A member of the RNA family "Small nucleolar RNA SNORA23" from Jaculus jaculus, 183 nucleotides long. Rfam describes the family as follows. The members of this family belong to the H/ACA class of snoRNAs which are thought to guide the sites of modification of uridines to pseudouridines. This family includes human snoRNA ACA23 (SNORA23) and mouse snoMBI-1. ACA23 is predicted to guide the pseudouridylation of residue U3737 and U4331 of 28S rRNA. Rfam 15.1 lists 1,092 matches to the family in 632 species. Its family is annotated with nucleolus and RNA processing in the Gene Ontology. The source organism's lineage runs through Eukaryota, Eumetazoa, Mammalia, Rodentia and Jaculus.

[Rfam]
RNA sequence: GCUCUAAUGUGUGCAUAGUUUCCAUCUGUGUCUGGUAGCAGUUUCUGUCUGUGUUUUGCAUUCAGAUCUUGCUAUCCACACAAACUUCAUGCAGCCACAGAGUAACCUGGGAUCAUAGUACUGGUCUAGUGUGUGUCUUUGGAUACAUCUCCCACUGACCAGCCUCCAAAUUCCCGCACACAA
Number, nucleotide and partner (000 for none) at each position: 001g000002c000003u000004c000005u000006a000007a000008u000009g000010u000011g000012u000013g092014c091015a090016u089017a000018g000019u000020u000021u000022c000023c000024a000025u000026c000027u000028g000029u082030g081031u080032c000033u078034g077035g076036u074037a073038g072039c071040a070041g069042u000043u000044u066045c065046u064047g063048u000049c000050u060051g059052u058053g000054u000055u000056u000057u000058g052059c051060a050061u000062u000063c047064a046065g045066a044067u000068c000069u041070u040071g039072c038073u037074a036075u000076c035077c034078a033079c000080a031081c030082a029083a000084a000085c000086u000087u000088c000089a016090u015091g014092c013093a000094g000095c000096c000097a000098c000099a000100g000101a000102g000103u000104a000105a000106c000107c000108u176109g175110g174111g173112a172113u000114c000115a000116u000117a000118g000119u000120a000121c162122u161123g160124g159125u158126c157127u000128a156129g155130u154131g153132u147133g146134u145135g144136u143137c142138u000139u000140u000141g000142g137143a136144u135145a134146c133147a132148u000149c000150u000151c000152c000153c131154a130155c129156u128157g126158a125159c124160c123161a122162g121163c000164c000165u000166c000167c000168a000169a000170a000171u000172u112173c111174c110175c109176g108177c000178a000179c000180a000181c000182a000183a000